[Rfam]
RNA sequence: GUGUGUGAUGGUGAUUUGGCUGCAACAUCUGUUACACUAUUGAUCACCAGAAUUGAUUCGGCUGAUCUGGCUGUCUAGGUGGGUGCCCCCUUCAUCCCUCAACACUUCAUGUGCAUCCCUCUCAAAGCUGCAUGCUUGGUUGAAAAGAAUGACUUCCUCCAUAGAGAUGAUACCGUUCAUCAGUCAAGGGUAUAAGGUAGUUGUGCUCCCUUGCUGUAACCUCCAAAGAAGUUCAAGGUCUACUUGUAGGUGAACAUAGGGUAGUCAAUUUUUCAAGACUCCAGACAUAUCCAAGUGAGAUACUGCAUGGGGCAGUUUGCUAUUCUUU
Number, nucleotide and partner (000 for none) at each position: 001g108002u000003g106004u000005g000006u101007g100008a099009u000010g097011g096012u000013g093014a092015u000016u000017u000018g090019g089020c000021u000022g000023c000024a000025a000026c085027a084028u083029c082030u081031g080032u079033u078034a000035c000036a000037c070038u069039a068040u000041u000042g067043a066044u065045c064046a000047c061048c060049a000050g000051a000052a000053u000054u000055g000056a000057u000058u000059c000060g048061g047062c000063u000064g045065a044066u043067c042068u039069g038070g037071c000072u000073g000074u000075c000076u000077a000078g033079g032080u031081g030082g029083g028084u027085g026086c000087c000088c000089c019090c018091u000092u014093c013094a000095u000096c011097c010098c000099u008100c007101a006102a000103c000104a000105c000106u003107u000108c001109a000110u000111g000112u000113g000114c000115a000116u170117c169118c000119c166120u165121c164122u139123c138124a137125a136126a000127g135128c134129u000130g000131c000132a000133u000134g128135c127136u125137u124138g123139g122140u161141u000142g159143a000144a000145a000146a000147g157148a000149a155150u000151g000152a000153c000154u000155u149156c000157c147158u000159c142160c000161a140162u000163a000164g121165a120166g119167a000168u000169g117170a116171u000172a000173c000174c000175g000176u000177u000178c000179a000180u000181c000182a000183g000184u000185c000186a000187a000188g000189g000190g000191u000192a000193u000194a000195a000196g000197g000198u000199a000200g270201u000202u268203g000204u000205g000206c264207u263208c000209c261210c260211u259212u258213g257214c000215u000216g000217u000218a000219a000220c000221c252222u000223c250224c249225a000226a000227a247228g000229a245230a244231g243232u000233u000234c000235a000236a000237g000238g000239u000240c000241u000242a000243c231244u230245u229246g000247u227248a000249g224250g223251u000252g221253a000254a000255c000256a000257u213258a212259g211260g210261g209262u000263a207264g206265u000266c000267a000268a202269u000270u200271u000272u000273u000274c000275a000276a000277g000278a000279c000280u000281c000282c000283a000284g000285a000286c000287a000288u000289a000290u000291c000292c000293a328294a327295g326296u000297g323298a000299g321300a000301u319302a316303c315304u314305g313306c312307a000308u000309g000310g000311g000312g306313c305314a304315g303316u302317u000318u000319g301320c000321u299322a000323u297324u000325c000326u295327u294328u293
RNA: 7SK RNA